[Rfam]
RNA sequence: GGCUAAUAUUUUACGAUUAAGAAACAACUGUCUCUUAGAUAGAUCAUGUAUUAAUUU
Numbered sequence: 001g002g003c004u005a006a007u008a009u010u011u012u013a014c015g016a017u018u019a020a021g022a023a024a025c026a027a028c029u030g031u032c033u034c035u036u037a038g039a040u041a042g043a044u045c046a047u048g049u050a051u052u053a054a055u056u057u
Base pairs, nucleotide, nucleotide: 018037019036020035021034022033024031025030
This 57-nucleotide RNA from Orobanche latisquama belongs to the Rfam family "Plastid-rps18 3UTR RNA". Rfam 15.1 lists 1,462 matches to the family in 409 species. NCBI's taxonomy places the organism under Eukaryota, Streptophyta, asterids, Orobancheae, Orobanche. The family's consensus secondary structure was predicted with LocARNA.